DUF3800-VIII RNA: a 67-nucleotide RNA from Clostridium sp. CAG:798. Rfam describes the family as follows. Bacteroidetes, Cyanobacteria, Firmicutes, Planctomycetes (1 example), Proteobacteria, Tenericutes (1 example). It is one of the family's seed sequences. The base pairs follow the family's consensus structure, which is taken from published work. NCBI's taxonomy places the organism under Bacteria, Clostridia, Eubacteriales, Clostridiaceae, Clostridium.
RNA sequence: AUUCCCCUGUCGAUUCGAAGCUUUACGUUUAGUGCGUAAAAGGUUUAUGUAGAUGAGAUGGGGGAUU
Numbered sequence: 001a002u003u004c005c006c007c008u009g010u011c012g013a014u015u016c017g018a019a020g021c022u023u024u025a026c027g028u029u030u031a032g033u034g035c036g037u038a039a040a041a042g043g044u045u046u047a048u049g050u051a052g053a054u055g056a057g058a059u060g061g062g063g064g065a066u067u
Base pairs, nucleotide, nucleotide: 001067003065004064005063006062007061008060009059010058011057015053016052022040023039024038025037026036027035028034
Dot-bracket structure: (.(((((((((...((.....(((((((.....)))))))...........))...))))))))).)